RNA sequence: UGCGGCACCCAUCAACGGGGCCGUUCCCCACCCCCGAGCUACUUUACCAUAUUCUGAAUUC
Numbered sequence: 001u002g003c004g005g006c007a008c009c010c011a012u013c014a015a016c017g018g019g020g021c022c023g024u025u026c027c028c029c030a031c032c033c034c035c036g037a038g039c040u041a042c043u044u045u046a047c048c049a050u051a052u053u054c055u056g057a058a059u060u061c
Stems, first nucleotide, its partner, number of pairs: 017045004023039004
Source information
The record is a 61-nucleotide sequence from Striga hermonthica, which matches "Plastid-psbN 5UTR RNA" in Rfam. The organism belongs to Striga, within Eukaryota. Rfam's curators write: Plastid psbN is a non-coding RNA (ncRNA) recognised in plastids. It was reported as a conserved 11 stem-loop in the prime untranslated region (5UTR) of psbN genes. It has been reported that the motif is retained in a subset of mature transcripts in barley, which can suggests a possible role in transcript alternative 5 prime processing.